c-di-GMP-II-GAG riboswitch aptamer: an 88-nucleotide sequence.

[Rfam]
RNA sequence: GCGUACGCGGGAAGCUCUGACGCGCGGUUCAUCCCAACGGCCGCCCACCGACCGCGCCGAGCCACUGGCGAGACCGACCCGCGGAAUG
Number, nucleotide and partner (000 for none) at each position: 001g000002c088003g087004u086005a000006c084007g082008c081009g080010g079011g078012a000013a000014g062015c061016u000017c000018u000019g000020a000021c000022g057023c056024g055025c054026g053027g052028u051029u050030c000031a000032u000033c000034c000035c000036a000037a000038c000039g075040g074041c000042c070043g069044c068045c067046c000047a000048c000049c000050g029051a028052c027053c026054g025055c024056g023057c022058c000059g000060a000061g015062c014063c000064a000065c000066u000067g045068g044069c043070g042071a000072g000073a000074c040075c039076g000077a000078c011079c010080c009081g008082c007083g000084g006085a000086a004087u003088g002